[Rfam]
RNA sequence: GUGCCCGUAACUCAGUGGUAGAGUGUGAGAUUGCAAUAACGUUUCUGCAGCGUAAUCGAUCUCGAAGCCGCGUGUUCGAACCACGCCGGGCACU
Numbered sequence: 001g002u003g004c005c006c007g008u009a010a011c012u013c014a015g016u017g018g019u020a021g022a023g024u025g026u027g028a029g030a031u032u033g034c035a036a037u038a039a040c041g042u043u044u045c046u047g048c049a050g051c052g053u054a055a056u057c058g059a060u061c062u063c064g065a066a067g068c069c070g071c072g073u074g075u076u077c078g079a080a081c082c083a084c085g086c087c088g089g090g091c092a093c094u
Stems, first nucleotide, its partner, number of pairs: 001093007010024004026064008070086005
RNA: tRNA